[Rfam]
RNA: Makes More Granules Regulator RNA (mmgR)
Organism: Novosphingobium fuchskuhlense
RNA sequence: CGAGCAGGCCUUUCAGGCAUCCUCUCCCAAACUUUCAAAGGGCCAUCCGGCAACGGGUGGCCCCUUUUUUUGGUCUGG
Numbered sequence: 001c002g003a004g005c006a007g008g009c010c011u012u013u014c015a016g017g018c019a020u021c022c023u024c025u026c027c028c029a030a031a032c033u034u035u036c037a038a039a040g041g042g043c044c045a046u047c048c049g050g051c052a053a054c055g056g057g058u059g060g061c062c063c064c065u066u067u068u069u070u071u072g073g074u075c076u077g078g
Stems, first nucleotide, its partner, number of pairs: 008018004040063009